Small nucleolar RNA SNORA65: a 124-nucleotide RNA from Tupaia belangeri. A search with the family's covariance model found it, with a score of 73 bits. Rfam links the family to the GO terms nucleolus and RNA processing. U65 belongs to the H/ACA class of snoRNAs which are thought to guide the sites of modification of uridines to pseudouridines. On this family, see Huttenhofer et al., EMBO J 2001: "RNomics: an experimental approach that identifies 201 candidates for novel, small, non-messenger RNAs in mouse". NCBI's taxonomy places the organism under Eukaryota, Euteleostomi, Sarcopterygii, Euarchontoglires, Tupaia belangeri. The base pairs follow the family's consensus structure, which was predicted with RNAalifold. Rfam 15.1 lists 1,089 matches to the family in 619 species.
RNA sequence: CCUGCCUCUGCCCCACCAGUUCUGUUGGCUGGUAUAAUCCAGUGGUGAGUUGAUACUAAACACCAGCUAAGGAAACAGAGUUGUUCUUCAUGUGGGUGACUCUGCUUAAAGCCUAGAAAUAGUC
Dot-bracket structure: ....((.(((....((((((......).)))))......))).)).................(.((((..((...((((((..(((.......)))..))))))))...))).).)........